[Rfam]
Background: The family of this 81-nucleotide sequence from Rhodoferax fermentans is "int-alpA RNA". The family's RNA type in Rfam is small RNA. The family has 167 seed sequences and 577 matches in Rfam 15.1. Rfam's curators write: Acidobacteria (1 example), Planctomycetes (1 example), Proteobacteria.

RNA sequence: ACCACGCCUAGCUAUCGGCUGAUCCCCGAUGGUGAAAACCGGGACACCCCUGACCCGGCUGGCGCUGGUUCUUUAUCGGGG
Number, nucleotide and partner (000 for none) at each position: 001a069002c068003c067004a066005c064006g063007c062008c061009u000010a000011g033012c032013u031014a030015u029016c028017g027018g026019c000020u000021g000022a000023u000024c000025c000026c018027c017028g016029a015030u014031g013032g012033u011034g000035a000036a000037a000038a000039c058040c057041g056042g055043g054044a000045c000046a000047c081048c080049c079050c078051u000052g000053a000054c043055c042056c041057g040058g039059c000060u000061g008062g007063c006064g005065c000066u004067g003068g002069u001070u000071c000072u000073u000074u000075a000076u000077c000078g050079g049080g048081g047